[Rfam]
RNA sequence: AACAGAGUAGAAAUGAAUGCGUAAAGUGUCCUUUGAACGGGGAGUUGUCAAGGGGACGAAAGGCGGCUUGCCUGCGGUAUUUAUUUCGCAUCCCGCUGAG
Dot-bracket structure: ..(((....(((((((((((((...((.((((((((...[[[.[...))))))))))...((((.....))))))).)))))))))).].]]]..)))..
The record is a 100-nucleotide sequence from Tissierella praeacuta, which matches "THF (Tetrahydrofolate) riboswitch aptamer" in Rfam. NCBI's taxonomy places the organism under Bacteria, Tissierellales, Tissierellaceae, Tissierella, Tissierella praeacuta. Rfam's curators write: Tetrahydrofolate (THF) riboswitch was first reported for Ames et al. as an RNA motif in 5' untranslated (5'-UTR)regions of folate transport and biosynthesis genes in Firmicutes genomes.